Rfam assigns this 84-nucleotide RNA sequence from Diceros bicornis to the family "mir-1805 microRNA precursor family". Lineage of the source: Eukaryota > Opisthokonta > Bilateria > Chordata > Diceros bicornis. The match comes from Rfam's covariance-model search (84 bits).
Nucleotides: 084
Stems, first nucleotide, its partner, number of pairs: 001084003007079003012074011024062006030055004
Number, partner (000 for none) and nucleotide at each position: 001084g002083g003082a004000a005000g006000g007079u008078u009077c010000u011000g012074g013073g014072a015071g016070c017069u018068g019067u020066a021065g022064c023000c024062u025061u026060u027059c028058a029057a030055a031054c032053a033052g034000a035000g036000c037000u038000c039000u040000g041000c042000c043000u044000c045000u046000g047000c048000a049000u050000a051000c052033c053032u054031g055030u056000a057029u058028u059027g060026g061025a062024a063000u064022g065021c066020u067019a068018c069017a070016g071015c072014u073013c074012c075000c076000u077009g078008g079007a080000c081000g082003u083002c084001c